Source information
A member of the RNA family "Plant signal recognition particle RNA" from Jatropha curcas, 305 nucleotides long. The organism belongs to Jatropha, within Eukaryota. By type it is a non-coding RNA gene.
RNA sequence: GCUGAGUCCGGUUGCGUGGGCUUGUAACUCAAACGAGAGCUUAGAGGUGGUGGGACACGGCUUCAUUCUAUGGAAUCGGGCCUAACAUGGCGUGGUCCUUGCUUGCCCAUACCAAGCCUAGAGCUGAAUGCUGUAACCCUAGCGAAGGUUUGGGUCACUGUAUUCCUGGAGAAGCGGGUACCGCGUGAGGCUGGCUUAACAGAGCAGCGAGUACCUCUCGCUCUUGGCAGUGGAUGGAUUACAGGUUGGUGCUAUUUGGGCCCAAAAUGGCUCCGUAGGGGAAGCCCAGUUGAACCAUCACCUUU
Number, nucleotide and partner (000 for none) at each position: 001g040002c039003u038004g023005a022006g021007u020008c019009c018010g017011g000012u000013u000014g000015c000016g000017u010018g009019g008020g007021c006022u005023u004024g000025u000026a000027a000028c037029u036030c035031a000032a000033a000034c000035g030036a029037g028038a003039g002040c001041u000042u000043a305044g304045a303046g302047g301048u300049g299050g298051u297052g296053g295054g000055a000056c292057a291058c289059g000060g287061c284062u283063u282064c281065a000066u279067u000068c278069u277070a276071u275072g274073g273074a272075a000076u270077c269078g263079g262080g261081c260082c259083u258084a257085a256086c000087a255088u254089g253090g252091c000092g000093u000094g000095g000096u000097c000098c249099u248100u000101g246102c245103u244104u243105g242106c000107c237108c236109a000110u000111a000112c233113c232114a231115a000116g228117c227118c226119u000120a224121g223122a222123g221124c220125u000126g165127a164128a163129u162130g161131c160132u000133g158134u157135a000136a155137c154138c153139c152140u000141a150142g149143c148144g000145a000146a000147g000148g143149u142150u141151u000152g139153g138154g137155u136156c000157a134158c133159u000160g131161u130162a129163u128164u127165c126166c171167u000168g000169g000170a000171g166172a000173a218174g217175c000176g215177g214178g000179u000180a000181c000182c211183g000184c209185g208186u207187g000188a000189g000190g000191c202192u201193g200194g000195c000196u000197u000198a000199a000200c193201a192202g191203a000204g000205c000206a000207g186208c185209g184210a000211g182212u000213a000214c177215c176216u000217c174218u173219c000220g124221c123222u122223c121224u120225u000226g118227g117228c116229a000230g000231u114232g113233g112234a000235u000236g108237g107238a000239u000240u000241a000242c105243a104244g103245g102246u101247u000248g099249g098250u000251g000252c090253u089254a088255u087256u085257u084258g083259g082260g081261c080262c079263c078264a000265a000266a000267a000268u000269g077270g076271c000272u074273c073274c072275g071276u070277a069278g068279g066280g000281g064282a063283a062284g061285c000286c000287c060288a000289g058290u000291u057292g056293a000294a000295c053296c052297a051298u050299c049300a048301c047302c046303u045304u044305u043